[Rfam]
RNA sequence: CCAUCACCACCAUACCUGAUUAUCUUUCGGGUAUGGGUGUAUGGCCGGAAGAGAACAAAAUAUCUUCCGAGUGCGAUAACAUCAUAGCAGAACCAUAGCCCCUCGGAAGGAAACUUUCGAGGGGUUUUUGUU
Numbered sequence: 001c002c003a004u005c006a007c008c009a010c011c012a013u014a015c016c017u018g019a020u021u022a023u024c025u026u027u028c029g030g031g032u033a034u035g036g037g038u039g040u041a042u043g044g045c046c047g048g049a050a051g052a053g054a055a056c057a058a059a060a061u062a063u064c065u066u067c068c069g070a071g072u073g074c075g076a077u078a079a080c081a082u083c084a085u086a087g088c089a090g091a092a093c094c095a096u097a098g099c100c101c102c103u104c105g106g107a108a109g110g111a112a113a114c115u116u117u118c119g120a121g122g123g124g125u126u127u128u129u130g131u132u
Stems, first nucleotide, its partner, number of pairs: 008043002011035003015031005045069001047068006095128001097126013